[Rfam]
RNA sequence: UAACGAAAAUUACCUUCGCUGCAGACAGUAGGUGCCGAAAGGCUUAAUAUCCUACCGAGGCGUGUAGUAUAGAGGUUUCUUUAUGCAUUUUUAAGGGCAUGAAAGAGGUCUUUCUCUACGUCUGCAGAAAGACCUCUUUUAAUUUUUAUUU
Numbered sequence: 001u002a003a004c005g006a007a008a009a010u011u012a013c014c015u016u017c018g019c020u021g022c023a024g025a026c027a028g029u030a031g032g033u034g035c036c037g038a039a040a041g042g043c044u045u046a047a048u049a050u051c052c053u054a055c056c057g058a059g060g061c062g063u064g065u066a067g068u069a070u071a072g073a074g075g076u077u078u079c080u081u082u083a084u085g086c087a088u089u090u091u092u093a094a095g096g097g098c099a100u101g102a103a104a105g106a107g108g109u110c111u112u113u114c115u116c117u118a119c120g121u122c123u124g125c126a127g128a129a130a131g132a133c134c135u136c137u138u139u140u141a142a143u144u145u146u147u148a149u150u151u
Base pairs, nucleotide, nucleotide: 028055029054030053031052032051034043035042036041105136106135107134108133109132110131111130112129113128114127
Rfam assigns this 151-nucleotide RNA sequence from Thermovenabulum gondwanense to the family "Ribosomal protein L10 leader". The organism belongs to Thermovenabulum, within Bacteria. A search with the family's covariance model found it, with a score of 71 bits.